[Rfam]
RNA: Fluoride riboswitch aptamer (crcB RNA motif)
RNA sequence: ACUGAACACGGCGAUGGAGUUCGCCGCGAACCGCCGGCCUCGGCUGAUGACUCCUACAGGUGC
Numbered sequence: 001a002c003u004g005a006a007c008a009c010g011g012c013g014a015u016g017g018a019g020u021u022c023g024c025c026g027c028g029a030a031c032c033g034c035c036g037g038c039c040u041c042g043g044c045u046g047a048u049g050a051c052u053c054c055u056a057c058a059g060g061u062g063c
Base pairs, nucleotide, nucleotide: 010025011024012023013022016054017053018052019051020050021049033044034043035042036041